[Rfam]
RNA sequence: GAAGGAGAAAUCCAAAGGGAUAGCAUGAUCCAAAUUCAUCUGUGUAUAUUUAUAUACAAAGCUUAGAAAAAAAAGAAUAAAGUUUAUGAAAAAAGAGAGUUGGGAUCAAUGCGAUCCCUUUGGAUGCCUCCUU
Numbered sequence: 001g002a003a004g005g006a007g008a009a010a011u012c013c014a015a016a017g018g019g020a021u022a023g024c025a026u027g028a029u030c031c032a033a034a035u036u037c038a039u040c041u042g043u044g045u046a047u048a049u050u051u052a053u054a055u056a057c058a059a060a061g062c063u064u065a066g067a068a069a070a071a072a073a074a075g076a077a078u079a080a081a082g083u084u085u086a087u088g089a090a091a092a093a094a095g096a097g098a099g100u101u102g103g104g105a106u107c108a109a110u111g112c113g114a115u116c117c118c119u120u121u122g123g124a125u126g127c128c129u130c131c132u133u
Stems, first nucleotide, its partner, number of pairs: 002133005010125012023112003026108006